[Rfam]
RNA sequence: GCCCGGCUCCGGGUCUCGGCCCGUACGGUCCGGCCGGCCAUGCUGGCGGGGCUGGGGCCGGAGCCGAGCCC
Numbered sequence: 001g002c003c004c005g006g007c008u009c010c011g012g013g014u015c016u017c018g019g020c021c022c023g024u025a026c027g028g029u030c031c032g033g034c035c036g037g038c039c040a041u042g043c044u045g046g047c048g049g050g051g052c053u054g055g056g057g058c059c060g061g062a063g064c065c066g067a068g069c070c071c
Stems, first nucleotide, its partner, number of pairs: 005070005012064001014062002017060006026054006033047006